[Rfam]
RNA sequence: GCCUACCUUACAAAUAGAAAACUCGCUGAUGAAGAUAAAAGAUGACGAGUCCUAAUUCCCUUGCGGAAAACCGAGGCAUUUGUCAGAAGCGAG
Numbered sequence: 001g002c003c004u005a006c007c008u009u010a011c012a013a014a015u016a017g018a019a020a021a022c023u024c025g026c027u028g029a030u031g032a033a034g035a036u037a038a039a040a041g042a043u044g045a046c047g048a049g050u051c052c053u054a055a056u057u058c059c060c061u062u063g064c065g066g067a068a069a070a071c072c073g074a075g076g077c078a079u080u081u082g083u084c085a086g087a088a089g090c091g092a093g
Stems, first nucleotide, its partner, number of pairs: 023092004044084007051076003056069002059066002